[Rfam]
RNA sequence: UCUGGUGAGGUAGUAGGUUGUAUAGUUUAGAAUCUUACCUUGGUGAACUAUGCAAGUUUCUACCUCACCAGA
Number, nucleotide and partner (000 for none) at each position: 001u072002c071003u070004g069005g068006u067007g066008a065009g064010g063011u062012a061013g060014u000015a058016g057017g000018u055019u054020g053021u052022a051023u050024a049025g048026u047027u000028u000029a035030g034031a000032a000033u000034c030035u029036u000037a000038c045039c000040u000041u000042g000043g000044u000045g038046a000047a026048c025049u024050a023051u022052g021053c020054a019055a018056g000057u016058u015059u000060c013061u012062a011063c010064c009065u008066c007067a006068c005069c004070a003071g002072a001

let-7 microRNA precursor family: a 72-nucleotide RNA from Caenorhabditis remanei.
Its family is annotated with miRNA-mediated post-transcriptional gene silencing and RISC complex in the Gene Ontology.
Lineage of the source: Eukaryota > Eumetazoa > Bilateria > Rhabditoidea > Caenorhabditis.
About the family: This family represents the microRNAs (miRNA) let-7 and mir-98. let-7 was identified from a study of developmental timing in C. elegans, and was later shown to be part of a much larger class of non-coding RNAs termed miRNAs.